The family of this 132-nucleotide sequence from Cucumis sativus is "U11 spliceosomal RNA". The match comes from Rfam's covariance-model search (77 bits). Pairs were carried over by alignment from the consensus structure, which is taken from published work.
[Rfam]
RNA sequence: UAAAAGGGUCGGUUGGCUAAAUAUGCCACGCUCACCCAAAAUGAAUGGGUAAGUGCUGUAUGGCUAUCUAGACAUAUGGCCGACAUAAUUUCUGGAAACUUCAUAGGGUUGGCCCAAUUGGCCGACCCUCCU
Numbered sequence: 001u002a003a004a005a006g007g008g009u010c011g012g013u014u015g016g017c018u019a020a021a022u023a024u025g026c027c028a029c030g031c032u033c034a035c036c037c038a039a040a041a042u043g044a045a046u047g048g049g050u051a052a053g054u055g056c057u058g059u060a061u062g063g064c065u066a067u068c069u070a071g072a073c074a075u076a077u078g079g080c081c082g083a084c085a086u087a088a089u090u091u092c093u094g095g096a097a098a099c100u101u102c103a104u105a106g107g108g109u110u111g112g113c114c115c116a117a118u119u120g121g122c123c124g125a126c127c128c129u130c131c132u
Stems, first nucleotide, its partner, number of pairs: 008084005014028004029055004034050005056079007105129008114121002